[Rfam]
Shown here is an 85-nucleotide RNA sequence from Bombyx mori, a member of the family "mir-2807 microRNA precursor family". On this family, see Liu et al., BMC Genomics 2010: "MicroRNAs of Bombyx mori identified by Solexa sequencing". NCBI's taxonomy places the organism under Eukaryota, Eumetazoa, Pancrustacea, Eumetabola, Bombyx. Pairs were carried over by alignment from the consensus structure, which was predicted with RNAalifold.
RNA sequence: UUAAGGAAAUAUUUGUAUGGAAUGGGAUCAUUUGUGUACGUUUGCCGCUAGGGGCGCUGUUCCAACUGCAUACAAAGUUGGGCUA
Numbered sequence: 001u002u003a004a005g006g007a008a009a010u011a012u013u014u015g016u017a018u019g020g021a022a023u024g025g026g027a028u029c030a031u032u033u034g035u036g037u038a039c040g041u042u043u044g045c046c047g048c049u050a051g052g053g054g055c056g057c058u059g060u061u062c063c064a065a066c067u068g069c070a071u072a073c074a075a076a077g078u079u080g081g082g083c084u085a
Base pairs, nucleotide, nucleotide: 008079009078010077012076013075014074015073016072017071019069021067023065025063026062027061029059030058035053037051040048041047